Rfam assigns this 79-nucleotide sequence from Trifolium subterraneum to the family "Small nucleolar RNA R160".
RNA sequence: AGCAAAAUGAUGAAGUAAUUUUGUCUGAAACUGAUGUGGAUCUUUAUUUCAUAUAUACCUUCAAAGUUCUCUGAUUGCU
Numbered sequence: 001a002g003c004a005a006a007a008u009g010a011u012g013a014a015g016u017a018a019u020u021u022u023g024u025c026u027g028a029a030a031c032u033g034a035u036g037u038g039g040a041u042c043u044u045u046a047u048u049u050c051a052u053a054u055a056u057a058c059c060u061u062c063a064a065a066g067u068u069c070u071c072u073g074a075u076u077g078c079u
Base pairs, nucleotide, nucleotide: 001079002078003077004076005075
Dot-bracket structure: (((((.....................................................................)))))
By type it is a C/D-box small nucleolar RNA. Pairs were carried over by alignment from the consensus structure. A reference for the family is Chen et al. (2003), "The high diversity of snoRNAs in plants: identification and comparative study of 120 snoRNA genes from Oryza sativa", Nucleic Acids Res. Rfam describes the family as follows. snoR160 is a C/D box small nucleolar RNA, which acts as a methylation guide for 25S ribosomal RNA in plants. snoR160 has been alternatively named snoZ270 in rice. A search with the family's covariance model found it, with a score of 69 bits. Gene Ontology terms of the family: RNA processing and nucleolus.